Source information:
A member of the RNA family "mir-3017 microRNA precursor family" from Acyrthosiphon pisum, 69 nucleotides long. The source organism's lineage runs through Eukaryota, Eumetazoa, Pterygota, Macrosiphini and Acyrthosiphon. For this family Rfam cites "Bioinformatic prediction, deep sequencing of microRNAs and expression analysis during phenotypic plasticity in the pea aphid, Acyrthosiphon pisum" (Legeai et al., BMC Genomics, 2010). It scores 64 bits against the family's covariance model.

[Rfam]
RNA sequence: UCGUGUUCUGUUCCUGACUCGGCUGGCGCCAGACUGGCGGGCGCCGCCAGUCUGUCACAGAACACGGGA
Numbered sequence: 001u002c003g004u005g006u007u008c009u010g011u012u013c014c015u016g017a018c019u020c021g022g023c024u025g026g027c028g029c030c031a032g033a034c035u036g037g038c039g040g041g042c043g044c045c046g047c048c049a050g051u052c053u054g055u056c057a058c059a060g061a062a063c064a065c066g067g068g069a
Stems, first nucleotide, its partner, number of pairs: 001067011014054001016052003021048002025045003